RNA sequence: UGUCUAUGCCCUCCUUGGGCGUUUCCUCCCUAGACUUCGGCCGCCUGCGGGCGGUCUUUUUUUUGCCUGCU
Numbered sequence: 001u002g003u004c005u006a007u008g009c010c011c012u013c014c015u016u017g018g019g020c021g022u023u024u025c026c027u028c029c030c031u032a033g034a035c036u037u038c039g040g041c042c043g044c045c046u047g048c049g050g051g052c053g054g055u056c057u058u059u060u061u062u063u064u065g066c067c068u069g070c071u
Base pairs, nucleotide, nucleotide: 008020009019010018011017039056040055041054042053043052044051045050
Makes More Granules Regulator RNA (mmgR): a 71-nucleotide RNA sequence from Paramesorhizobium deserti. The family's RNA type in Rfam is small RNA. The pairing is the family consensus, mapped onto this sequence. The match comes from Rfam's covariance-model search (66 bits). Its family is annotated with response to nitrogen compound, protein binding and DNA-templated transcription, termination in the Gene Ontology. The source organism's lineage runs through Bacteria, Pseudomonadati, Alphaproteobacteria, Hyphomicrobiales and Paramesorhizobium.